[Rfam]
Nucleotides: 139
Base pairs, nucleotide, nucleotide: 003137004136005135006134007133008132009130010129016028017027018026030118031117032107033106034048035047036046037045043105044104052082053081087103088102089101090100091099109121110120111119
Number, partner (000 for none) and nucleotide at each position: 001000u002000a003137c004136g005135u006134g007133c008132u009130c010129c011000g012000g013000g014000g015000u016028c017027g018026g019000u020000g021000u022000a023000a024000u025000u026018c027017c028016g029000a030118a031117c032107c033106g034048g035047c036046g037045g038000u039000g040000a041000u042000a043105g044104u045037c046036c047035g048034c049000g050000a051000c052082c053081c054000g055000a056000c057000c058000g059000c060000u061000c062000a063000u064000c065000a066000g067000c068000u069000u070000c071000a072000c073000g074000a075000g076000c077000g078000g079000c080000c081053g082052g083000u084000u085000g086000a087103c088102c089101u090100g091099g092000u093000g094000g095000a096000a097000c098000u099091c100090c101089g102088g103087g104044a105043c106033c107032g108000a109121c110120g111119g112000u113000g114000a115000a116000a117031g118030u119111c120110c121109g122000g123000a124000u125000g126000g127000g128000a129010g130009g131000c132008a133007g134006c135005a136004c137003g138000a139000a